[Rfam]
RNA sequence: AUACUCCCUCCAUCCCAUAAUAUAGGAAUGUUUUUGACAUUAGUAUAGUAUCAAAAACGUUCUUAUAUUAUGGGACAGAGGAAGUAU
Numbered sequence: 001a002u003a004c005u006c007c008c009u010c011c012a013u014c015c016c017a018u019a020a021u022a023u024a025g026g027a028a029u030g031u032u033u034u035u036g037a038c039a040u041u042a043g044u045a046u047a048g049u050a051u052c053a054a055a056a057a058c059g060u061u062c063u064u065a066u067a068u069u070a071u072g073g074g075a076c077a078g079a080g081g082a083a084g085u086a087u
Stems, first nucleotide, its partner, number of pairs: 003085003007081004013075005019069019039049003
MIR1120/MIR1122 microRNA precursor family: an 87-nucleotide sequence from Triticum aestivum. For this family Rfam cites "Cloning and characterization of microRNAs from wheat (Triticum aestivum L.)" (Yao et al., Genome Biol, 2007). The organism belongs to Triticum, within Eukaryota.